[Rfam]
RNA: tRNA
RNA sequence: GGAAGAGUGGCAGAGUGGCCGAUUGCGUCUGUUUCGAAAACAGAUGUACUAGCAAUAGUACCGGGGGUUCAAAUCCCUCCUCUUCCG
Numbered sequence: 001g002g003a004a005g006a007g008u009g010g011c012a013g014a015g016u017g018g019c020c021g022a023u024u025g026c027g028u029c030u031g032u033u034u035c036g037a038a039a040a041c042a043g044a045u046g047u048a049c050u051a052g053c054a055a056u057a058g059u060a061c062c063g064g065g066g067g068u069u070c071a072a073a074u075c076c077c078u079c080c081u082c083u084u085c086c087g
Base pairs, nucleotide, nucleotide: 001086002085003084004083005082006081007080010026011025012024013023028044029043030042031041032040063079064078065077066076067075